[Rfam]
Nucleotides: 068
Base pairs, nucleotide, nucleotide: 003022004021007018008017009016010015043067044066051058052057
Number, partner (000 for none) and nucleotide at each position: 001000c002000a003022u004021u005000c006000u007018g008017u009016u010015c011000g012000u013000a014000c015010g016009a017008a018007c019000c020000a021004a022003g023000a024000g025000a026000a027000g028000g029000c030000a031000a032000u033000c034000u035000a036000u037000u038000c039000u040000a041000u042000a043067c044066c045000c046000u047000a048000u049000a050000a051058u052057a053000c054000c055000a056000a057052u058051a059000c060000g061000c062000a063000a064000u065000u066044g067043g068000c

Plastid-clpP 5UTR RNA: a 68-nucleotide sequence from Musa balbisiana. NCBI's taxonomy places the organism under Eukaryota, Embryophyta, Euphyllophyta, Zingiberales, Musa. The family's consensus secondary structure was predicted with LocARNA. The family has 343 seed sequences and 2,105 matches in Rfam 15.1. On this family, see Richter et al., Plant Commun 2023: "Retrograde signaling in plants: A critical review focusing on the GUN pathway and beyond". A search with the family's covariance model found it, with a score of 56 bits.